This 126-nucleotide RNA sequence from Propithecus coquereli belongs to the Rfam family "U4atac minor spliceosomal RNA". U4atac is an essential component of the minor U12-type spliceosome complex which is required for removal of the rarer class of eukaryotic introns (AT-AC, U12-type). For this family Rfam cites "Evolutionary conservation of minor U12-type spliceosome between plants and humans" (Lorkovic et al., RNA, 2005). By type it is a spliceosomal small nuclear RNA. The match comes from Rfam's covariance-model search (87 bits). Pairs were carried over by alignment from the consensus structure, which is taken from published work.

RNA sequence: ACCAUCCUUUUCUUGGAGUUGUGCUCCUGUCCAAUGAGCAGGCAGUGAGGGCAGCACUGCUAACACCUACACAACAUGCUCACAUCAACUGGAGCUUUGCUUUACCUUGGUGCAAUUUUUGUAAAA
Numbered sequence: 001a002c003c004a005u006c007c008u009u010u011u012c013u014u015g016g017a018g019u020u021g022u023g024c025u026c027c028u029g030u031c032c033a034a035u036g037a038g039c040a041g042g043c044a045g046u047g048a049g050g051g052c053a054g055c056a057c058u059g060c061u062a063a064c065a066c067c068u069a070c071a072c073a074a075c076a077u078g079c080u081c082a083c084a085u086c087a088a089c090u091g092g093a094g095c096u097u098u099g100c101u102u103u104a105c106c107u108u109g110g111u112g113c114a115a116u117u118u119u120u121g122u123a124a125a126a
Stems, first nucleotide, its partner, number of pairs: 006018001008016002021060003027054006038046002083112005090104006